[Rfam]
RNA sequence: ACCUCAUCCAGAGGAGCAGAGGGACACGGCCCGAUGAAGCUCCGGCAACCCCUGACCGAGCCUUGAGCUGCGGCGGUAGGUGCCAACUCCGUCCGGAAUCAACCCGGGAAGAUGAGAG
Numbered sequence: 001a002c003c004u005c006a007u008c009c010a011g012a013g014g015a016g017c018a019g020a021g022g023g024a025c026a027c028g029g030c031c032c033g034a035u036g037a038a039g040c041u042c043c044g045g046c047a048a049c050c051c052c053u054g055a056c057c058g059a060g061c062c063u064u065g066a067g068c069u070g071c072g073g074c075g076g077u078a079g080g081u082g083c084c085a086a087c088u089c090c091g092u093c094c095g096g097a098a099u100c101a102a103c104c105c106g107g108g109a110a111g112a113u114g115a116g117a118g
Stems, first nucleotide, its partner, number of pairs: 003116006013043005021032003026092004044084004049080002051076002088110001093107004
RNA: SAM riboswitch aptamer (S box leader)